[Rfam]
RNA: HDV ribozyme from F. prausnitzii
RNA sequence: CCCACUUGAAAUGCUGCCACCUCAACGUGGUAAGUGGGGGGCAACGUUAAUACGGCAAAGAGCAGCAUGA
Numbered sequence: 001c002c003c004a005c006u007u008g009a010a011a012u013g014c015u016g017c018c019a020c021c022u023c024a025a026c027g028u029g030g031u032a033a034g035u036g037g038g039g040g041g042c043a044a045c046g047u048u049a050a051u052a053c054g055g056c057a058a059a060g061a062g063c064a065g066c067a068u069g070a
Stems, first nucleotide, its partner, number of pairs: 001038007019031003045054003